[Rfam]
RNA sequence: GUGCGGCCUGAAAAUGAGCGCUGCGCGUUUAAAAUAUGAGAAUAACUUACCGCGCAGCUACGAUUUCCCUGGUGUUGGCGCAGUAUUCGCGCACCCCGGUUAAUCC
Dot-bracket structure: ...................((((((((.......................))))))))............(((....((((.......)))))))...........
Numbered sequence: 001g002u003g004c005g006g007c008c009u010g011a012a013a014a015u016g017a018g019c020g021c022u023g024c025g026c027g028u029u030u031a032a033a034a035u036a037u038g039a040g041a042a043u044a045a046c047u048u049a050c051c052g053c054g055c056a057g058c059u060a061c062g063a064u065u066u067c068c069c070u071g072g073u074g075u076u077g078g079c080g081c082a083g084u085a086u087u088c089g090c091g092c093a094c095c096c097c098g099g100u101u102a103a104u105c106c
Stems, first nucleotide, its partner, number of pairs: 020058008071095003078092004

The family of this 106-nucleotide RNA from Citrobacter rodentium is "ArcZ RNA". NCBI's taxonomy places the organism under Bacteria, Pseudomonadati, Pseudomonadota, Gammaproteobacteria, Citrobacter rodentium. The match comes from Rfam's covariance-model search (99 bits). Its family is annotated with protein binding and regulation of translation in the Gene Ontology. From the family's description: This RNA was discovered in E. coli during a large scale screen. SraH expression is highly abundant in stationary phase, but low levels could be detected in exponentially growing cells as well. ArcZ RNA function as an activator of the alternative sigma factor RpoS as a response of stress. ArcZ afects and is also affected by the ArcA-ArcB regulon (aerobic/anaerobic-sensing ArcA-ArcB two-component). A reference for the family is Argaman et al. (2001), "Novel small RNA-encoding genes in the intergenic regions of Escherichia coli", Curr Biol. By type it is a small RNA.